The family of this 143-nucleotide RNA sequence from Drosophila virilis is "Small nucleolar RNA psi18S-1377".

RNA sequence: CCGUUCUUGUGUUAUUCGCUGAAUCUGUUAAUCUCGUUCAGCGAUUGUCAAACAGAACGCAAAGCGAACUCCAGGCCAGUUUACUCCACAUUGCAGAGCCUUGAAUGCCUCGGCUUCUACAUAACUACCCGCUCGCCACAUUU
Numbered sequence: 001c002c003g004u005u006c007u008u009g010u011g012u013u014a015u016u017c018g019c020u021g022a023a024u025c026u027g028u029u030a031a032u033c034u035c036g037u038u039c040a041g042c043g044a045u046u047g048u049c050a051a052a053c054a055g056a057a058c059g060c061a062a063a064g065c066g067a068a069c070u071c072c073a074g075g076c077c078a079g080u081u082u083a084c085u086c087c088a089c090a091u092u093g094c095a096g097a098g099c100c101u102u103g104a105a106u107g108c109c110u111c112g113g114c115u116u117c118u119a120c121a122u123a124a125c126u127a128c129c130c131g132c133u134c135g136c137c138a139c140a141u142u143u
Base pairs, nucleotide, nucleotide: 002059003058004057005056006055007054010050011049016044017043018042019041020040021039022038092121093120097115098114099113100112

psi18S-1377 is a member of the H/ACA class of snoRNA. This family is responsible for guiding the modification of uridines 1377 and 1279 to pseudouridine in Drosophila 18S rRNA.